[Rfam]
Shown here is a 74-nucleotide sequence from Drosophila albomicans, a member of the family "mir-2 microRNA precursor family".
The literature on the family includes a 2001 paper in Science by Lee and Ambros, "An extensive class of small RNAs in Caenorhabditis elegans".
Rfam links the family to the GO terms RISC complex and miRNA-mediated post-transcriptional gene silencing.
Lineage of the source: Eukaryota > Arthropoda > Mandibulata > Ephydroidea > Drosophila.

RNA sequence: GAACGCGUCGAAAUGACUGUGACUUAUGUGUGCUUUGCCCGAAAUUCAUAUCACAGCCAUUUUGACGAGUUUCA
Numbered sequence: 001g002a003a004c005g006c007g008u009c010g011a012a013a014u015g016a017c018u019g020u021g022a023c024u025u026a027u028g029u030g031u032g033c034u035u036u037g038c039c040c041g042a043a044a045u046u047c048a049u050a051u052c053a054c055a056g057c058c059a060u061u062u063u064g065a066c067g068a069g070u071u072u073c074a
Stems, first nucleotide, its partner, number of pairs: 006067010017056006025050003
Dot-bracket structure: .....((((((((((.((((((..(((....................))))))))).)))))))))).......